[Rfam]
RNA sequence: AAUGAGUUGUUUAGGCGCUUUUCAUUAUAAGUCUUAUGGGACUUUUUUGAUACUCAAAAAGCCCUAUAAUCUCCACAGUGGGAUUUACCCACUACAGAAAUUAUAGAGCC
Number, nucleotide and partner (000 for none) at each position: 001a026002a025003u024004g023005a022006g021007u000008u000009g018010u017011u000012u000013a000014g000015g000016c000017g010018c009019u000020u000021u006022u005023c004024a003025u002026u001027a000028u000029a044030a043031g042032u041033c040034u000035u000036a000037u000038g000039g000040g033041a032042c031043u030044u029045u000046u000047u000048u000049g000050a000051u000052a000053c000054u000055c000056a000057a000058a000059a000060a000061g109062c108063c000064c106065u000066a104067u103068a102069a101070u100071c000072u098073c097074c000075a000076c000077a093078g092079u091080g090081g089082g000083a000084u000085u000086u000087a000088c000089c081090c080091a079092c078093u077094a000095c000096a000097g073098a072099a000100a070101u069102u068103a067104u066105a000106g064107a000108g062109c061110c000
Source information: The family of this 110-nucleotide RNA from Streptococcus pneumoniae is "Streptococcus RNA 266". NCBI's taxonomy places the organism under Bacteria, Bacillati, Bacilli, Streptococcus, Streptococcus pneumoniae. The family's RNA type in Rfam is small RNA. The pairing is the family consensus, mapped onto this sequence.